This 62-nucleotide RNA from Microcebus murinus belongs to the Rfam family "Gag/pol translational readthrough site".

RNA sequence: UAGGGGCGACGGGGUUCGGUUCCCCUCCCCGAACCCAGGGUAACUCUACAGGUGGAGGGGAA
Numbered sequence: 001u002a003g004g005g006g007c008g009a010c011g012g013g014g015u016u017c018g019g020u021u022c023c024c025c026u027c028c029c030c031g032a033a034c035c036c037a038g039g040g041u042a043a044c045u046c047u048a049c050a051g052g053u054g055g056a057g058g059g060g061a062a
Base pairs, nucleotide, nucleotide: 008041010039012036013035014034015033016031018029019028022060023059024058025057026056027055
A search with the family's covariance model found it, with a score of 70 bits.